This 69-nucleotide RNA from Varanus komodoensis belongs to the Rfam family "Small nucleolar RNA SNORD30". The family has 20 seed sequences and 367 matches in Rfam 15.1. Clan: SNORD30 clan. Gene Ontology terms of the family: nucleolus and RNA processing.
RNA sequence: UGGCAUGAUGAACUCUUCUGGAAUCUCGUUCGGCUGAAUGUCAGUGUUGAGAAGCGGAAUCUGAGAAUC
Numbered sequence: 001u002g003g004c005a006u007g008a009u010g011a012a013c014u015c016u017u018c019u020g021g022a023a024u025c026u027c028g029u030u031c032g033g034c035u036g037a038a039u040g041u042c043a044g045u046g047u048u049g050a051g052a053a054g055c056g057g058a059a060u061c062u063g064a065g066a067a068u069c
Stems, first nucleotide, its partner, number of pairs: 024052005031046002034044001